[Rfam]
Acido-Lenti-1 RNA: a 47-nucleotide RNA sequence from Verrucomicrobiaceae bacterium SCGC AG-212-N21. The organism belongs to Verrucomicrobiaceae, within Bacteria. It scores 48 bits against the family's covariance model. The base pairs follow the family's consensus structure, which is taken from published work. By type it is a small RNA.

RNA sequence: CCCACGGUUGAAACCGUGGGCUAUUUUCUUCCGUCCCUGCCGGGACU
Numbered sequence: 001c002c003c004a005c006g007g008u009u010g011a012a013a014c015c016g017u018g019g020g021c022u023a024u025u026u027u028c029u030u031c032c033g034u035c036c037c038u039g040c041c042g043g044g045a046c047u
Stems, first nucleotide, its partner, number of pairs: 001020008033046005